A member of the RNA family "Glycine riboswitch aptamer" from Novilysobacter concretionis, 95 nucleotides long. A search with the family's covariance model found it, with a score of 56 bits. Lineage of the source: Bacteria > Pseudomonadati > Lysobacterales > Lysobacteraceae > Novilysobacter concretionis. From the family's description: This family represents the bacterial glycine riboswitch.
[Rfam]
RNA sequence: CAACUCUGGAGAGACCGGUUCAAACCGGCGCCGAAGGUGCACGGAGCGCGAGUCAUCGCGCUUCAAACUCUCAGGCAAAAGGACAGAGGGGCGAG
Numbered sequence: 001c002a003a004c005u006c007u008g009g010a011g012a013g014a015c016c017g018g019u020u021c022a023a024a025c026c027g028g029c030g031c032c033g034a035a036g037g038u039g040c041a042c043g044g045a046g047c048g049c050g051a052g053u054c055a056u057c058g059c060g061c062u063u064c065a066a067a068c069u070c071u072c073a074g075g076c077a078a079a080a081g082g083a084c085a086g087a088g089g090g091g092c093g094a095g
Stems, first nucleotide, its partner, number of pairs: 001091001004088005015028004030076003033072002037070001039068001043063002
Dot-bracket structure: (..(((((......((((......)))).(((((..(.(...((.................))....).))).))).......)))))..)....